[Rfam]
Background:
Shown here is a 115-nucleotide sequence from Trifolium subterraneum, a member of the family "MIR2593 microRNA precursor family". Taxonomically the source falls in Trifolium (Eukaryota, Streptophyta, Embryophyta, Hologalegina). The base pairs follow the family's consensus structure, which was predicted with RNAalifold. The match comes from Rfam's covariance-model search (97 bits). Rfam 15.1 lists 1,262 matches to the family in 6 species.

RNA sequence: UUAUAAGCAAAUUUCGACUUUUUAGAUUCAUUGGAUAAUUAAUGUAUCUGGUCUAUAAUUAAGGUCCGAUACAUUAGUUAUCCAAUGAAUCUGAAAAGUGGAAAUUUGCUUAUAA
Numbered sequence: 001u002u003a004u005a006a007g008c009a010a011a012u013u014u015c016g017a018c019u020u021u022u023u024a025g026a027u028u029c030a031u032u033g034g035a036u037a038a039u040u041a042a043u044g045u046a047u048c049u050g051g052u053c054u055a056u057a058a059u060u061a062a063g064g065u066c067c068g069a070u071a072c073a074u075u076a077g078u079u080a081u082c083c084a085a086u087g088a089a090u091c092u093g094a095a096a097a098g099u100g101g102a103a104a105u106u107u108g109c110u111u112a113u114a115a
Base pairs, nucleotide, nucleotide: 002114003113004112005111006110007109009107010106011105012104013103015101017099018098019097020096021095022094023093024092025091027089028088029087030086031085032084033083034082035081036080037079038078039077040076041075042074043073044072050066051065052064